Shown here is a 116-nucleotide RNA from Rhizobium sp. CIAT894, a member of the family "Alphaproteobacterial ar14". Rfam 15.1 lists 784 matches to the family in 332 species. Lineage of the source: Bacteria > Pseudomonadati > Hyphomicrobiales > Rhizobiaceae > Rhizobium. Smr14C2 was renamed NfeR1 (Nodule Formation Efficiency RNA) highly expressed in salt stress and during the symbiotic interaction on legume roots. By type it is a small RNA.
RNA sequence: GCGGACUGAAGCGCUUAACCCCUCCGAGCUGCUUCGGCUUGACGGACAGCAUCCUCCUCCCAGGCUGUCGGUCACUAUCGAAGCCCGGCGCUCCUCUCCCGCGCCGGGCUUUCGUU
Numbered sequence: 001g002c003g004g005a006c007u008g009a010a011g012c013g014c015u016u017a018a019c020c021c022c023u024c025c026g027a028g029c030u031g032c033u034u035c036g037g038c039u040u041g042a043c044g045g046a047c048a049g050c051a052u053c054c055u056c057c058u059c060c061c062a063g064g065c066u067g068u069c070g071g072u073c074a075c076u077a078u079c080g081a082a083g084c085c086c087g088g089c090g091c092u093c094c095u096c097u098c099c100c101g102c103g104c105c106g107g108g109c110u111u112u113c114g115u116u
Stems, first nucleotide, its partner, number of pairs: 007036003011032002013029002041073003045069006081111011
Dot-bracket structure: ......(((.((((.............)).)).)))....(((.((((((.............)))))).))).......(((((((((((.........))))))))))).....